[Rfam]
Nucleotides: 065
Base pairs, nucleotide, nucleotide: 008028009027010026011025012024014022015021032058033057034056035055036054037053038052039051
Number, partner (000 for none) and nucleotide at each position: 001000u002000g003000u004000c005000u006000c007000c008028u009027c010026c011025a012024a013000a014022u015021c016000u017000u018000c019000u020000u021015g022014a023000a024012u025011u026010g027009g028008a029000u030000u031000u032058a033057g034056c035055c036054c037053g038052c039051u040000a041000u042000c043000g044000a045000a046000a047000g048000a049000c050000u051039g052038g053037c054036g055035g056034g057033c058032u059000u060000u061000u062000u063000u064000u065000u

The record is a 65-nucleotide sequence from Noviherbaspirillum sedimenti, which matches "Betaproteobacteria toxic small RNA" in Rfam. The literature on the family includes a 2012 paper in Genome Res by Kimelman et al., "A vast collection of microbial genes that are toxic to bacteria". Taxonomically the source falls in Noviherbaspirillum (Bacteria, Pseudomonadati, Pseudomonadota, Oxalobacteraceae). A search with the family's covariance model found it, with a score of 56 bits. Overexpression in amino aid rich medium attenuates growth, suggesting role in repressing amino acid intake and metabolism. The base pairs follow the family's consensus structure, which was predicted with WAR.